[Rfam]
The record is a 77-nucleotide RNA sequence from Bambusicola thoracicus, which matches "Retrovirus direct repeat 1 (dr1)" in Rfam.
The family's consensus secondary structure is taken from published work.
RNA sequence: AGGCUUAACUGAGAGGACAAUGGCAUGUAUAGGCGCAAAGCGGGGCUUCGGUUGUACGCGGUUAGGGUCCUCUCAGG
Numbered sequence: 001a002g003g004c005u006u007a008a009c010u011g012a013g014a015g016g017a018c019a020a021u022g023g024c025a026u027g028u029a030u031a032g033g034c035g036c037a038a039a040g041c042g043g044g045g046c047u048u049c050g051g052u053u054g055u056a057c058g059c060g061g062u063u064a065g066g067g068u069c070c071u072c073u074c075a076g077g
Stems, first nucleotide, its partner, number of pairs: 011074008030064003034060002040055004